Shown here is a 177-nucleotide RNA from Actibacterium naphthalenivorans, a member of the family "Ruegeria cis52 sRNA".
For this family Rfam cites "Experimental Identification of Small Non-Coding RNAs in the Model Marine Bacterium Ruegeria pomeroyi DSS-3" (Rivers et al., Front Microbiol, 2016).
Taxonomically the source falls in Actibacterium (Bacteria, Pseudomonadota, Alphaproteobacteria, Rhodobacterales).
The family's RNA type in Rfam is small RNA.
Gene Ontology term of the family: regulation of gene expression.
[Rfam]
RNA sequence: UGCGCAGCGCGUGUUUCAGAACGAUGUUGCGGAAGCUUACCCCCUUCAGCCGGGCGGUGCGGAUAUACUGCGCCGUCAUCACCUCGGCCAUCGAGGCACGGGUCAUCCUGGCGAUAUAGCCCAUGCCGUAGAGCGCCAUGGUGGCCACGGGCAGGGUGAAAUUCUCGAAUGUGAUGC
Numbered sequence: 001u002g003c004g005c006a007g008c009g010c011g012u013g014u015u016u017c018a019g020a021a022c023g024a025u026g027u028u029g030c031g032g033a034a035g036c037u038u039a040c041c042c043c044c045u046u047c048a049g050c051c052g053g054g055c056g057g058u059g060c061g062g063a064u065a066u067a068c069u070g071c072g073c074c075g076u077c078a079u080c081a082c083c084u085c086g087g088c089c090a091u092c093g094a095g096g097c098a099c100g101g102g103u104c105a106u107c108c109u110g111g112c113g114a115u116a117u118a119g120c121c122c123a124u125g126c127c128g129u130a131g132a133g134c135g136c137c138a139u140g141g142u143g144g145c146c147a148c149g150g151g152c153a154g155g156g157u158g159a160a161a162u163u164c165u166c167g168a169a170u171g172u173g174a175u176g177c
Stems, first nucleotide, its partner, number of pairs: 005140002009136004014131002016128001019126001021124001028123002031120001038113001040111002046105001048103001050101003054097001055075008082096005146176002148173001151172003154165003